[Rfam]
RNA sequence: AUUUGGGGAGUGCCGAAUCCCUAUACAGCAGGGAACGGGGGAUGAUUUUUCCGAAGAUGAACGUUUAUCUUCUUGGGGUGAAGCGCUUUACUCUUAGCGCCGGGCCAUCCUUGGGUCCGAAUCCGACAACUAACCUCGGAGGCAAUUCGAAGGAGGAUUA
Numbered sequence: 001a002u003u004u005g006g007g008g009a010g011u012g013c014c015g016a017a018u019c020c021c022u023a024u025a026c027a028g029c030a031g032g033g034a035a036c037g038g039g040g041g042a043u044g045a046u047u048u049u050u051c052c053g054a055a056g057a058u059g060a061a062c063g064u065u066u067a068u069c070u071u072c073u074u075g076g077g078g079u080g081a082a083g084c085g086c087u088u089u090a091c092u093c094u095u096a097g098c099g100c101c102g103g104g105c106c107a108u109c110c111u112u113g114g115g116u117c118c119g120a121a122u123c124c125g126a127c128a129a130c131u132a133a134c135c136u137c138g139g140a141g142g143c144a145a146u147u148c149g150a151a152g153g154a155g156g157a158u159u160a
Stems, first nucleotide, its partner, number of pairs: 011144004018034005036138005043075002076124003084099004102118004